[Rfam]
RNA sequence: CAGAUUGGUGCUCCUUGAACUGGUCGGAUUCUUCCUUCAGCAAGUCGAAUCUUUCCAGUUCAGAGCACCAUUCUUCGUCAACGGCACGCAGUCACAACGCAUUACCAUGAAAG
Numbered sequence: 001c002a003g004a005u006u007g008g009u010g011c012u013c014c015u016u017g018a019a020c021u022g023g024u025c026g027g028a029u030u031c032u033u034c035c036u037u038c039a040g041c042a043a044g045u046c047g048a049a050u051c052u053u054u055c056c057a058g059u060u061c062a063g064a065g066c067a068c069c070a071u072u073c074u075u076c077g078u079c080a081a082c083g084g085c086a087c088g089c090a091g092u093c094a095c096a097a098c099g100c101a102u103u104a105c106c107a108u109g110a111a112a113g
Base pairs, nucleotide, nucleotide: 002074003073004072006070007069008068009067010066011065012064013063016062017061018060020058021057022056023055026052027051028050029049031047034044102112103111104108
Dot-bracket structure: .(((.((((((((..(((.((((..((((.(..(.........)..).))))..)))).))))))))))).)))...........................(((...)..)).
Notes:
The record is a 113-nucleotide sequence from Mycobacterium parascrofulaceum, which matches "Actinobacteria sRNA Ms_IGR-7" in Rfam. The family's RNA type in Rfam is small RNA. The match comes from Rfam's covariance-model search (48 bits). Pairs were carried over by alignment from the consensus structure. The source organism's lineage runs through Bacteria, Actinomycetota, Mycobacteriaceae, Mycobacterium simiae complex and Mycobacterium parascrofulaceum.